This 119-nucleotide sequence from Mycoavidus cysteinexigens belongs to the Rfam family "Group II catalytic intron D1-D4-2".
NCBI's taxonomy places the organism under Bacteria, Pseudomonadati, Pseudomonadota, Betaproteobacteria, Mycoavidus.
A search with the family's covariance model found it, with a score of 109 bits.
Group II introns are found in rRNA, tRNA and mRNA of organelles in fungi, plants and protists, and also in mRNA in bacteria.
RNA sequence: GAUGGUAGGCCCAUCGGUGUCGGCGUACAGGCGCAGGCACCAAACUACCCACUGCUGCUGCGUUUAAGAGACGUGGUGGUGCGCGAGUUGGGAAAAGGUUGAGCAAGACUCGAUCAGGU
Numbered sequence: 001g002a003u004g005g006u007a008g009g010c011c012c013a014u015c016g017g018u019g020u021c022g023g024c025g026u027a028c029a030g031g032c033g034c035a036g037g038c039a040c041c042a043a044a045c046u047a048c049c050c051a052c053u054g055c056u057g058c059u060g061c062g063u064u065u066a067a068g069a070g071a072c073g074u075g076g077u078g079g080u081g082c083g084c085g086a087g088u089u090g091g092g093a094a095a096a097g098g099u100u101g102a103g104c105a106a107g108a109c110u111c112g113a114u115c116a117g118g119u
Base pairs, nucleotide, nucleotide: 001015002014003013004012005011016041017040018039019038020037021036023034024033025032026031046118048092049091050090051088052087053086054080055079057077058076059075061073062072063071064070097115098114099113100112101111102110